[Rfam]
RNA sequence: UCGGCCCCGGUUCACGCCCAGGCAAGCCCGCCCGAGCGACCCGGCGCC
Numbered sequence: 001u002c003g004g005c006c007c008c009g010g011u012u013c014a015c016g017c018c019c020a021g022g023c024a025a026g027c028c029c030g031c032c033c034g035a036g037c038g039a040c041c042c043g044g045c046g047c048c
Stems, first nucleotide, its partner, number of pairs: 003048003007044004015038003019034001021032003